RNA sequence: GGUCACCUACGGGGGGCCACACCACAUAGGCCGAGGCCGUCCGCAAGGACGGAAGAGGCCAUCUGCUAAACGGAAGACAGAAA
Numbered sequence: 001g002g003u004c005a006c007c008u009a010c011g012g013g014g015g016g017c018c019a020c021a022c023c024a025c026a027u028a029g030g031c032c033g034a035g036g037c038c039g040u041c042c043g044c045a046a047g048g049a050c051g052g053a054a055g056a057g058g059c060c061a062u063c064u065g066c067u068a069a070a071c072g073g074a075a076g077a078c079a080g081a082a083a
Stems, first nucleotide, its partner, number of pairs: 001018004006014003029060004
The record is an 83-nucleotide RNA from Oceanicola sp. 22II-s10i, which matches "L2-Alphaproteobacteria ribosomal protein leader" in Rfam.
The literature on the family includes a 2020 paper in BMC Microbiol by Eckert and Weinberg, "Discovery of 20 novel ribosomal leader candidates in bacteria and archaea".
It scores 49 bits against the family's covariance model.
Rfam classes the family as a cis-regulatory leader.
Taxonomically the source falls in Oceanicola (Bacteria, Pseudomonadota, Rhodobacterales, Roseobacteraceae).